[Rfam]
RNA sequence: UCGUAAGUCGUCGCACUCUCGAGGGUCGCGGCGACGAGCUUCGUUGGUCCCAGGAGGGAUCCAGCGGAGUUUCACCAGAAAAAGGAA
Numbered sequence: 001u002c003g004u005a006a007g008u009c010g011u012c013g014c015a016c017u018c019u020c021g022a023g024g025g026u027c028g029c030g031g032c033g034a035c036g037a038g039c040u041u042c043g044u045u046g047g048u049c050c051c052a053g054g055a056g057g058g059a060u061c062c063a064g065c066g067g068a069g070u071u072u073c074a075c076c077a078g079a080a081a082a083a084g085g086a087a
Base pairs, nucleotide, nucleotide: 007035008034009033010032011031012030013029014028017025018024036072037071038070039069040068041067042066043065044064045063046062047061050058051057
gyrA RNA: an 87-nucleotide sequence from Pseudomonas cremoricolorata.
By type it is a cis-regulatory element.
Lineage of the source: Bacteria > Pseudomonadati > Pseudomonadota > Gammaproteobacteria > Pseudomonas.